[Rfam]
RNA: Small nucleolar RNA SNORA28
RNA sequence: AAGCAACACUCUGUGGCAGAUGAUCAAAACUGUCUGACACAAUUUGAGCUUGCUACAGCAAGCAAGUCUACCUACUCUGAUGUUCUCUAUGAGACAAGCCUUUAUACAGACUUAAAUAGU
Numbered sequence: 001a002a003g004c005a006a007c008a009c010u011c012u013g014u015g016g017c018a019g020a021u022g023a024u025c026a027a028a029a030c031u032g033u034c035u036g037a038c039a040c041a042a043u044u045u046g047a048g049c050u051u052g053c054u055a056c057a058g059c060a061a062g063c064a065a066g067u068c069u070a071c072c073u074a075c076u077c078u079g080a081u082g083u084u085c086u087c088u089a090u091g092a093g094a095c096a097a098g099c100c101u102u103u104a105u106a107c108a109g110a111c112u113u114a115a116a117u118a119g120u
Base pairs, nucleotide, nucleotide: 009048010047011046012041013040014039015038017036018035019034020033021032022031064113065112066111067110068109069108073106074105079100081098086094087093088092